The record is a 359-nucleotide RNA from Lacticaseibacillus manihotivorans, which matches "Bacterial RNase P class B" in Rfam. About the family: Ribonuclease P (RNase P) is a ubiquitous endoribonuclease, found in archaea, bacteria and eukarya as well as chloroplasts and mitochondria. The family's consensus secondary structure is taken from published work. By type it is a ribozyme. Clan: RNaseP clan.

RNA sequence: AACCUUGAGUAAUCGCGCCUAGCAUCUGUUAGGUGAGGAAAGUCCAUGCCCGCACUGGCUGCGAUGCCAGUAGUGUUCGUGCCAGGCCCAAUAAGCCUGGGUACUGAGAAAUCGGUAACGGCGACUCAAUUGCUAAAACUUCGGUCAUGCAGGCGAGUCUGAAAAGUGCCACAGAGACGAUGUCAUCGGGAAACUGGUGGAUUGGAACGGGUAAACCCCGCGAGCGAGUAACCCAAACUUUGGUAGGGGCGUCUGAGUAGAGGAAAUGAACCAACGCUCAGACAGCGAAAGCUGAGAUAGAUGAUUACUGAAGGUAUCUGCUGCCUGGCAGGUACUGGAACAAAACAUGGCUUAUAGAG
Numbered sequence: 001a002a003c004c005u006u007g008a009g010u011a012a013u014c015g016c017g018c019c020u021a022g023c024a025u026c027u028g029u030u031a032g033g034u035g036a037g038g039a040a041a042g043u044c045c046a047u048g049c050c051c052g053c054a055c056u057g058g059c060u061g062c063g064a065u066g067c068c069a070g071u072a073g074u075g076u077u078c079g080u081g082c083c084a085g086g087c088c089c090a091a092u093a094a095g096c097c098u099g100g101g102u103a104c105u106g107a108g109a110a111a112u113c114g115g116u117a118a119c120g121g122c123g124a125c126u127c128a129a130u131u132g133c134u135a136a137a138a139c140u141u142c143g144g145u146c147a148u149g150c151a152g153g154c155g156a157g158u159c160u161g162a163a164a165a166g167u168g169c170c171a172c173a174g175a176g177a178c179g180a181u182g183u184c185a186u187c188g189g190g191a192a193a194c195u196g197g198u199g200g201a202u203u204g205g206a207a208c209g210g211g212u213a214a215a216c217c218c219c220g221c222g223a224g225c226g227a228g229u230a231a232c233c234c235a236a237a238c239u240u241u242g243g244u245a246g247g248g249g250c251g252u253c254u255g256a257g258u259a260g261a262g263g264a265a266a267u268g269a270a271c272c273a274a275c276g277c278u279c280a281g282a283c284a285g286c287g288a289a290a291g292c293u294g295a296g297a298u299a300g301a302u303g304a305u306u307a308c309u310g311a312a313g314g315u316a317u318c319u320g321c322u323g324c325c326u327g328g329c330a331g332g333u334a335c336u337g338g339a340a341c342a343a344a345a346c347a348u349g350g351c352u353u354a355u356a357g358a359g
Stems, first nucleotide, its partner, number of pairs: 004359003007355001008309007016035006040353003044350005049228001051226003054071006077223005082100006101119001102117006120218002123159004130152004138145002166216002168212003183200007232248003252282007283294004313336009